[Rfam]
RNA sequence: UUUUAGCCCUGAUGGGAACGGCAUCCUUUUAUGGCAGUCCCGAUAGCUAUCGGGAUGCCAUAAAAGAUAUAGUGUACAGCAGGAUUAGCU
Numbered sequence: 001u002u003u004u005a006g007c008c009c010u011g012a013u014g015g016g017a018a019c020g021g022c023a024u025c026c027u028u029u030u031a032u033g034g035c036a037g038u039c040c041c042g043a044u045a046g047c048u049a050u051c052g053g054g055a056u057g058c059c060a061u062a063a064a065a066g067a068u069a070u071a072g073u074g075u076a077c078a079g080c081a082g083g084a085u086u087a088g089c090u
Base pairs, nucleotide, nucleotide: 009082010081011080013078014077018073019072023068024067025066029063030062031061032060033059034058035057036056